[Rfam]
This 67-nucleotide sequence belongs to the Rfam family "RAGATH-18 RNA". The family's RNA type in Rfam is small RNA. Rfam's curators put it in the seed alignment. The family's consensus secondary structure is taken from published work. Rfam's curators write: Actinobacteria, Firmicutes, Fusobacteria, Thermotogae (1 example).
RNA sequence: CCUACGGACUGUCACACAAAUGAUAGUAACUCGAAUUUUAGUGAACUCAGACAGGUUGAACUAGGAA
Dot-bracket structure: ((((....(((((.......(((.....(((........)))....)))))))).......))))..